Background
The record is an 80-nucleotide RNA from Dichanthelium oligosanthes, which matches "Small nucleolar RNA R12" in Rfam. It scores 80 bits against the family's covariance model. Taxonomically the source falls in Dichanthelium (Eukaryota, Embryophyta, Poales, Dichantheliinae). The family's RNA type in Rfam is C/D-box small nucleolar RNA. Its family is annotated with nucleolus and RNA processing in the Gene Ontology.
[Rfam]
RNA sequence: AUUGGGAUGAUGAAGAAAAUCAGACGGAUUCCCAUUGAUUUUUGCAUAAUGAUGUUAGUAACCAGCUACUUCCGACCAAU
Numbered sequence: 001a002u003u004g005g006g007a008u009g010a011u012g013a014a015g016a017a018a019a020u021c022a023g024a025c026g027g028a029u030u031c032c033c034a035u036u037g038a039u040u041u042u043u044g045c046a047u048a049a050u051g052a053u054g055u056u057a058g059u060a061a062c063c064a065g066c067u068a069c070u071u072c073c074g075a076c077c078a079a080u
Stems, first nucleotide, its partner, number of pairs: 001080005